[Rfam]
RNA sequence: GCAGCGGCGACGCCGAGUCCGCCGUCGCGCGGAGCCGGGGACCCAACCUCGCAUCGGGGUGAAUCGGCCUGUCACCAGGCCGUAGGGCGACUUCCAGCCCGAACCCGUCAGCUAACCCGGUAGGCGUCUGGAAGCCAAGGA
Numbered sequence: 001g002c003a004g005c006g007g008c009g010a011c012g013c014c015g016a017g018u019c020c021g022c023c024g025u026c027g028c029g030c031g032g033a034g035c036c037g038g039g040g041a042c043c044c045a046a047c048c049u050c051g052c053a054u055c056g057g058g059g060u061g062a063a064u065c066g067g068c069c070u071g072u073c074a075c076c077a078g079g080c081c082g083u084a085g086g087g088c089g090a091c092u093u094c095c096a097g098c099c100c101g102a103a104c105c106c107g108u109c110a111g112c113u114a115a116c117c118c119g120g121u122a123g124g125c126g127u128c129u130g131g132a133a134g135c136c137a138a139g140g141a
Stems, first nucleotide, its partner, number of pairs: 011126004018033005034121006044056001057106003065082004085100004